[Rfam]
RNA sequence: GAAGCUGUUUGAUAUGUUUGAUAUUCGGUUGUUUAUGUGCUUUGUCCUGUCAACUAAAUAUCAGACAUAUUCCUACAGAGUC
Numbered sequence: 001g002a003a004g005c006u007g008u009u010u011g012a013u014a015u016g017u018u019u020g021a022u023a024u025u026c027g028g029u030u031g032u033u034u035a036u037g038u039g040c041u042u043u044g045u046c047c048u049g050u051c052a053a054c055u056a057a058a059u060a061u062c063a064g065a066c067a068u069a070u071u072c073c074u075a076c077a078g079a080g081u082c
Stems, first nucleotide, its partner, number of pairs: 005078004011071015027055005